[Rfam]
RNA sequence: AAGCAACACUGUGGCAGAUGAUCAAAAUUGAUACAAUUUGAGCUUGCUGUAGCAAGAAAGUCUAACCUAUUCCGGUGUUCUCCCUUCUGUGAGACAAGCCGUUUAUAUAGACUUAAACAGU
Number, nucleotide and partner (000 for none) at each position: 001a000002a000003g000004c000005a000006a000007c000008a000009c040010u035011g034012u033013g032014g000015c030016a029017g000018a000019u000020g000021a000022u000023c000024a000025a000026a000027a000028u000029u016030g015031a000032u013033a012034c011035a010036a000037u000038u000039u000040g009041a000042g000043c000044u000045u000046g000047c000048u000049g000050u000051a000052g000053c000054a000055a000056g000057a000058a114059a113060g112061u111062c110063u109064a108065a000066c000067c000068u107069a106070u105071u000072c000073c101074g100075g099076u098077g000078u000079u000080c000081u094082c093083c000084c091085u000086u000087c000088u000089g000090u000091g084092a000093g082094a081095c000096a000097a000098g076099c075100c074101g073102u000103u000104u000105a070106u069107a068108u064109a063110g062111a061112c060113u059114u058115a000116a000117a000118c000119a000120g000121u000
The record is a 121-nucleotide RNA from Prolemur simus, which matches "Small nucleolar RNA SNORA28" in Rfam. Rfam links the family to the GO terms RNA processing and nucleolus. Rfam classes the family as an H/ACA-box small nucleolar RNA. ACA28 is a member of the H/ACA class of snoRNA that guide the sites of modification of uridines to pseudouridines.